SAM riboswitch aptamer (S box leader): a 109-nucleotide sequence from Geobacillus kaustophilus. NCBI's taxonomy places the organism under Bacteria, Bacillati, Bacilli, Geobacillus, Geobacillus kaustophilus. The SAM riboswitch is found upstream of a number of genes which code for proteins involved in methionine or cysteine biosynthesis in Gram-positive bacteria. The SAM riboswitch acts at the level of transcription termination control.
[Rfam]
RNA sequence: UUCUUAUCAAGAGCAGGCGGAGGGACGAGCCCAAUGAAGCCCGGCAACCGGCUUGGCGCGCGCCAAGCACGGUGCUAAUUCUUGCAGCGGAAACGCUGAGAGAUAAGAA
Numbered sequence: 001u002u003c004u005u006a007u008c009a010a011g012a013g014c015a016g017g018c019g020g021a022g023g024g025a026c027g028a029g030c031c032c033a034a035u036g037a038a039g040c041c042c043g044g045c046a047a048c049c050g051g052c053u054u055g056g057c058g059c060g061c062g063c064c065a066a067g068c069a070c071g072g073u074g075c076u077a078a079u080u081c082u083u084g085c086a087g088c089g090g091a092a093a094c095g096c097u098g099a100g101a102g103a104u105a106a107g108a109a
Stems, first nucleotide, its partner, number of pairs: 001109008013042001016041003022032003026084004043076004048072002050068001053065001080101001085098005